[Rfam]
RNA sequence: GUCUCUUACAGAGCUAACACCUUGAUUGAGUGCCGGAGAUAAGCGCCGGGGGGGAAUUUUCAC
Numbered sequence: 001g002u003c004u005c006u007u008a009c010a011g012a013g014c015u016a017a018c019a020c021c022u023u024g025a026u027u028g029a030g031u032g033c034c035g036g037a038g039a040u041a042a043g044c045g046c047c048g049g050g051g052g053g054g055a056a057u058u059u060u061c062a063c
Base pairs, nucleotide, nucleotide: 002055003054004053005052013031014030015029033049034048035047036046038044
The record is a 63-nucleotide RNA sequence from a Plautia stali symbiont, which matches "rydB RNA" in Rfam.
By type it is a small RNA.
The source organism's lineage runs through Bacteria, Pseudomonadati, Gammaproteobacteria, Enterobacterales and Enterobacteriaceae.
This family consists of several bacterial sequences from E. coli, Shigella flexneri and Salmonella species. This RNA gene was discovered by an RNA screen between the ydiC and ydiH in E. coli. This gene is only 67 bases in length and is composed of a hairpin like structure. The function of this RNA is unknown.